[Rfam]
RNA sequence: GGGCGGUCUGAAGGUAGUGCCUUAUCUCAAUUGAUAGUUCACAGUCAGUUACAGAUCAGACUCCUUGUUUUGCUCUUUGCCCCUUCUCACUACUGCACUUGACUAGUCUUUA
Numbered sequence: 001g002g003g004c005g006g007u008c009u010g011a012a013g014g015u016a017g018u019g020c021c022u023u024a025u026c027u028c029a030a031u032u033g034a035u036a037g038u039u040c041a042c043a044g045u046c047a048g049u050u051a052c053a054g055a056u057c058a059g060a061c062u063c064c065u066u067g068u069u070u071u072g073c074u075c076u077u078u079g080c081c082c083c084u085u086c087u088c089a090c091u092a093c094u095g096c097a098c099u100u101g102a103c104u105a106g107u108c109u110u111u112a
Stems, first nucleotide, its partner, number of pairs: 001108002005104004010100002014096002016091004043074003047070002